The record is a 160-nucleotide RNA sequence from Microbacterium dextranolyticum, which matches "FMN riboswitch aptamer (RFN element)" in Rfam. It scores 77 bits against the family's covariance model.
[Rfam]
RNA sequence: ACGUGCUCCGGGGUCGGUGAGAAUCCGAACCGGCGGUGAGAGUCCGCGAGCCCGUCCGAUCGACAGAUCGGCGGGUUGAUCCGGUGGAAUUCCGGGACCGACGGUGAUGCGAUGAGGUUCGAUGAGAACCUGUCGCUAGUCCGGAUGGGAGGAAGCACAG
Numbered sequence: 001a002c003g004u005g006c007u008c009c010g011g012g013g014u015c016g017g018u019g020a021g022a023a024u025c026c027g028a029a030c031c032g033g034c035g036g037u038g039a040g041a042g043u044c045c046g047c048g049a050g051c052c053c054g055u056c057c058g059a060u061c062g063a064c065a066g067a068u069c070g071g072c073g074g075g076u077u078g079a080u081c082c083g084g085u086g087g088a089a090u091u092c093c094g095g096g097a098c099c100g101a102c103g104g105u106g107a108u109g110c111g112a113u114g115a116g117g118u119u120c121g122a123u124g125a126g127a128a129c130c131u132g133u134c135g136c137u138a139g140u141c142c143g144g145a146u147g148g149g150a151g152g153a154a155g156c157a158c159a160g
Stems, first nucleotide, its partner, number of pairs: 003158005008152002015027003031100002033047004042098002050076005080096005102143003

The literature on the family includes a 2002 paper in Proc Natl Acad Sci U S A by Winkler et al., "An mRNA structure that controls gene expression by binding FMN". The organism belongs to Microbacterium, within Bacteria.